[Rfam]
RNA: Nematode snoRNA ceN39
Organism: Meloidogyne graminicola
RNA sequence: UUGGCGUAUAGGAACCAGUCAAGGCAUUACAAAGUCUUGGAUGGGCCGAAAAUCGCCAAAAAUAUUUAAAGAGUAAAGGUCGCAUAAUUAGAAAUUUUAUUCUAUUAGUGCAUUUACCCAACUCUUAUACACUU
Number, nucleotide and partner (000 for none) at each position: 001u000002u000003g057004g056005c055006g054007u000008a000009u000010a000011g047012g046013a000014a000015c044016c043017a042018g000019u040020c039021a038022a037023g036024g035025c034026a000027u000028u000029a000030c000031a000032a000033a000034g025035u024036c023037u022038u021039g020040g019041a000042u017043g016044g015045g000046c012047c011048g000049a000050a000051a000052a000053u000054c006055g005056c004057c003058a000059a000060a000061a000062a000063u000064a000065u000066u000067u000068a000069a126070a125071g124072a123073g122074u000075a000076a000077a000078g118079g117080u116081c000082g111083c110084a000085u107086a106087a105088u104089u000090a000091g102092a101093a100094a000095u000096u000097u000098u000099a000100u093101u092102c091103u000104a088105u087106u086107a085108g000109u000110g083111c082112a000113u000114u000115u000116a080117c079118c078119c000120a000121a000122c073123u072124c071125u070126u069127a000128u000129a000130c000131a000132c000133u000134u000